[Rfam]
RNA sequence: GGUUUGUAGGCAGUGUCGUUAGCUGAUUGUGUUUUCUAGCUUUGCAAUCACUAACUACACUACCAUCAAAAC
Numbered sequence: 001g002g003u004u005u006g007u008a009g010g011c012a013g014u015g016u017c018g019u020u021a022g023c024u025g026a027u028u029g030u031g032u033u034u035u036c037u038a039g040c041u042u043u044g045c046a047a048u049c050a051c052u053a054a055c056u057a058c059a060c061u062a063c064c065a066u067c068a069a070a071a072c
Base pairs, nucleotide, nucleotide: 003070004069005068006067009064010063012061013060014059015058016057018055019054020053021052022051024050025049026048027047028046029045030044031043
The record is a 72-nucleotide RNA from Microcaecilia unicolor, which matches "mir-34 microRNA precursor family" in Rfam. Its Rfam clan is "mir-34 clan". Its family is annotated with RISC complex and miRNA-mediated post-transcriptional gene silencing in the Gene Ontology. On this family, see Lim et al., Science 2003: "Vertebrate microRNA genes". Rfam describes the family as follows. Human mir-34a was discovered computationally and later experimentally verified. The mature sequence is excised from the 5' arm of the hairpin.